Overview: The family of this 97-nucleotide sequence from Candidatus Malacoplasma girerdii is "Bacterial small signal recognition particle RNA". The match comes from Rfam's covariance-model search (51 bits). It is annotated as a non-coding RNA gene. Pairs were carried over by alignment from the consensus structure, which is taken from published work. NCBI's taxonomy places the organism under Bacteria, Bacillati, Mycoplasmoidales, Mycoplasmoidaceae, Malacoplasma.
RNA sequence: UAUACUAACUAUUACAACAUUAGUGGCUAAUUGUGUCAGGAUGGAAACAUAGCAGCACCGUGCAUUGAUUAAUGUGUGUAAUAGUUUUUUUAUUACG
Numbered sequence: 001u002a003u004a005c006u007a008a009c010u011a012u013u014a015c016a017a018c019a020u021u022a023g024u025g026g027c028u029a030a031u032u033g034u035g036u037c038a039g040g041a042u043g044g045a046a047a048c049a050u051a052g053c054a055g056c057a058c059c060g061u062g063c064a065u066u067g068a069u070u071a072a073u074g075u076g077u078g079u080a081a082u083a084g085u086u087u088u089u090u091u092a093u094u095a096c097g
Base pairs, nucleotide, nucleotide: 004091007088008087009084010083011082012081013080014079015076017075018074019073020072021071022070023066026063027062033058034057035056036055041050042049043048